Notes:
Rfam assigns this 104-nucleotide RNA from Durio zibethinus to the family "mir-395 microRNA precursor family". Pairs were carried over by alignment from the consensus structure, which was predicted with PFOLD. Lineage of the source: Eukaryota > Streptophyta > Tracheophyta > Magnoliopsida > Durio. Its family is annotated with miRNA-mediated post-transcriptional gene silencing and RISC complex in the Gene Ontology. mir-395 was identified in both Arabidopsis thaliana and Oryza sativa computationally and was later experimentally verified. mir-395 is thought to target mRNAs coding for ATP sulphurylases. The mature sequence is excised from the 3' arm of the hairpin. The match comes from Rfam's covariance-model search (64 bits).
[Rfam]
RNA sequence: CUGUCCUCUGGAGUUCCCCUGACCACUUCACUAGAGGUUUCUUGGACACUUGACCGGGGAGGAUCCUCACCUACUGAAGUGUUUGGGGGAACUCUAGAUGGCAC
Numbered sequence: 001c002u003g004u005c006c007u008c009u010g011g012a013g014u015u016c017c018c019c020u021g022a023c024c025a026c027u028u029c030a031c032u033a034g035a036g037g038u039u040u041c042u043u044g045g046a047c048a049c050u051u052g053a054c055c056g057g058g059g060a061g062g063a064u065c066c067u068c069a070c071c072u073a074c075u076g077a078a079g080u081g082u083u084u085g086g087g088g089g090a091a092c093u094c095u096a097g098a099u100g101g102c103a104c
Stems, first nucleotide, its partner, number of pairs: 005100001007098003011094010022084001024081007032073003